[Rfam]
RNA sequence: CUGUUAAGUGAUGACGUGGUAGACAGAAUGUCACUUCAUCAAGUCUUGUCAUGGACAUCUCAUUGUCACGUCAUCACCUUCAAUGAUAUGACAAUGAUGUGUCAAUGAUUAGGCAUAAUGACGUGACACUUUAUCUGUCGCAUCAUCAUUUAACAGAA
Numbered sequence: 001c002u003g004u005u006a007a008g009u010g011a012u013g014a015c016g017u018g019g020u021a022g023a024c025a026g027a028a029u030g031u032c033a034c035u036u037c038a039u040c041a042a043g044u045c046u047u048g049u050c051a052u053g054g055a056c057a058u059c060u061c062a063u064u065g066u067c068a069c070g071u072c073a074u075c076a077c078c079u080u081c082a083a084u085g086a087u088a089u090g091a092c093a094a095u096g097a098u099g100u101g102u103c104a105a106u107g108a109u110u111a112g113g114c115a116u117a118a119u120g121a122c123g124u125g126a127c128a129c130u131u132u133a134u135c136u137g138u139c140g141c142a143u144c145a146u147c148a149u150u151u152a153a154c155a156g157a158a
Stems, first nucleotide, its partner, number of pairs: 001156014016141008025132003029128006036121004041116001043114004048109005054103005070087005

The record is a 158-nucleotide sequence from Glycine soja, which matches "MIR4371 microRNA precursor family" in Rfam.
Clan: MIR4387 microRNA precursor clan.
Pairs were carried over by alignment from the consensus structure, which was predicted with RNAalifold.